[Rfam]
Bacterial RNase P class B: a 308-nucleotide RNA sequence from [Clostridium] innocuum. Rfam's curators write: Ribonuclease P (RNase P) is a ubiquitous endoribonuclease, found in archaea, bacteria and eukarya as well as chloroplasts and mitochondria. Its best characterised activity is the generation of mature 5'-ends of tRNAs by cleaving the 5'-leader elements of precursor-tRNAs. Cellular RNase Ps are ribonucleoproteins. RNA from bacterial RNase Ps retains its catalytic activity in the absence of the protein subunit, i.e. it is a ribozyme. Isolated eukaryotic and archaeal RNase P RNA has not been shown to retain its catalytic function, but is still essential for the catalytic activity of the holoenzyme. Although the archaeal and eukaryotic holoenzyme s have a much greater protein content than the bacterial ones, the RNA cores from all the three lineages are homologous -- helices corresponding to P1, P2, P3, P4, and P10/11 are common to all cellular RNase P RNAs. Yet, there is considerable sequence variation, particularly among the eukaryotic RNAs. By type it is a ribozyme. It is one of the family's seed sequences.
RNA sequence: GAGGAAAGUCCGGGCUCGCACAUUCUGUGAUGAAUGUAGUGUUUGUGCUGGAUGAAACGAUAAAUCCAGGCAGCGUAAGCUGACGGCUGGAGAAGGCCUGUGGUGAAAGCUAUGGCGGACUCCUUUAAAAGUGCCACAGAAACGAGCUUUUCGGGAAACCGGAAAGAUGGAACGGGUAAACCCCGCAAGCGAGAAACCCAAAUUUGGUAGGGGAAUCUAAUCACGGCAAAACGAAGCCAGUGAUCGGAACGUGGAAACACGUAGAUAAAUGACUGCCACUUUCGCAAGAGAGUACAAAACACGGCUUA
Number, nucleotide and partner (000 for none) at each position: 001g000002a000003g000004g000005a000006a307007a306008g305009u000010c304011c303012g302013g000014g300015c193016u192017c191018g190019c189020a037021c036022a035023u034024u033025c032026u000027g000028u000029g000030a000031u000032g025033a024034a023035u022036g021037u020038a000039g000040u000041g000042u000043u188044u187045g186046u185047g184048c069049u068050g067051g066052a065053u064054g000055a000056a000057a000058c000059g000060a000061u000062a000063a000064a053065u052066c051067c050068a049069g048070g084071c082072a081073g080074c079075g000076u000077a000078a000079g074080c073081u072082g071083a000084c070085g183086g182087c000088u000089g124090g123091a000092g000093a000094a000095g000096g116097c115098c114099u000100g000101u000102g111103g110104u109105g000106a000107a000108a000109g104110c103111u102112a000113u000114g098115g097116c096117g000118g000119a000120c000121u000122c000123c090124u089125u000126u000127a000128a000129a000130a000131g181132u180133g177134c176135c175136a000137c000138a000139g000140a000141a000142a000143c000144g000145a000146g000147c166148u165149u164150u163151u162152c161153g160154g159155g000156a000157a000158a000159c154160c153161g152162g151163a150164a149165a148166g147167a000168u000169g000170g000171a000172a000173c000174g000175g135176g134177u133178a000179a000180a132181c131182c086183c085184c047185g046186c045187a044188a043189g019190c018191g017192a016193g015194a000195a000196a000197c212198c211199c210200a000201a000202a000203u000204u000205u000206g000207g000208u000209a000210g199211g198212g197213g000214a000215a000216u248217c247218u246219a000220a244221u243222c242223a000224c000225g000226g000227c000228a000229a000230a000231a000232c000233g000234a000235a000236g000237c000238c000239a000240g000241u000242g222243a221244u220245c000246g218247g217248a216249a262250c261251g260252u259253g258254g000255a000256a000257a000258c253259a252260c251261g250262u249263a000264g000265a000266u000267a000268a000269a000270u000271g000272a000273c000274u000275g000276c000277c000278a000279c292280u291281u290282u289283c288284g000285c000286a000287a000288g283289a282290g281291a280292g279293u000294a000295c000296a000297a000298a000299a000300c014301a000302c012303g011304g010305c008306u007307u006308a000